[Rfam]
RNA sequence: UCUUCAUUUUGCACACUCUCUCGGCUGGUUGGGCGACGAGAGAGUGUGCGAAAUGAAGAGA
Numbered sequence: 001u002c003u004u005c006a007u008u009u010u011g012c013a014c015a016c017u018c019u020c021u022c023g024g025c026u027g028g029u030u031g032g033g034c035g036a037c038g039a040g041a042g043a044g045u046g047u048g049c050g051a052a053a054u055g056a057a058g059a060g061a
Stems, first nucleotide, its partner, number of pairs: 001059007010050001012048006019041004